[Rfam]
RNA sequence: GCCACAUGAUGAGUUGAGGUUUGUCAGUAGCUCUCUGGGCUGUGAUGACGUCCGAUCUAUCACCCUUUUCUGAUGGCU
Numbered sequence: 001g002c003c004a005c006a007u008g009a010u011g012a013g014u015u016g017a018g019g020u021u022u023g024u025c026a027g028u029a030g031c032u033c034u035c036u037g038g039g040c041u042g043u044g045a046u047g048a049c050g051u052c053c054g055a056u057c058u059a060u061c062a063c064c065c066u067u068u069u070c071u072g073a074u075g076g077c078u
Stems, first nucleotide, its partner, number of pairs: 001077004030040004
RNA: Small nucleolar RNA SNORD83